[Rfam]
Record summary:
The family of this 75-nucleotide sequence from Hermetia illucens is "mir-957 microRNA precursor family". A search with the family's covariance model found it, with a score of 74 bits.

RNA sequence: CAGGCGUUAGUUUUGAACGGGUUUUGGUGUAUUUCGGCAAGAGUCCAAUUGAAACCGUCCAAAACUGAGGCUUGU
Numbered sequence: 001c002a003g004g005c006g007u008u009a010g011u012u013u014u015g016a017a018c019g020g021g022u023u024u025u026g027g028u029g030u031a032u033u034u035c036g037g038c039a040a041g042a043g044u045c046c047a048a049u050u051g052a053a054a055c056c057g058u059c060c061a062a063a064a065c066u067g068a069g070g071c072u073u074g075u
Stems, first nucleotide, its partner, number of pairs: 005070001007068008017058003021055008